Rfam assigns this 77-nucleotide sequence from Nematostella vectensis to the family "mir-2032 microRNA precursor family".
RNA sequence: GCUCACCGUUGCUGUCGCUGCGACAGUUAGCUAGCAUUUAUUGCGAGGUAACUGUUGCAGCAUCCAUGACUGUGAGG
Numbered sequence: 001g002c003u004c005a006c007c008g009u010u011g012c013u014g015u016c017g018c019u020g021c022g023a024c025a026g027u028u029a030g031c032u033a034g035c036a037u038u039u040a041u042u043g044c045g046a047g048g049u050a051a052c053u054g055u056u057g058c059a060g061c062a063u064c065c066a067u068g069a070c071u072g073u074g075a076g077g
Base pairs, nucleotide, nucleotide: 002076003075004074005073006072008070009069010068011067014064017061018060019059020058021057022056023055024054025053026052027051028050029049031047032046034044035043036042

Gene Ontology terms of the family: miRNA-mediated post-transcriptional gene silencing and RISC complex.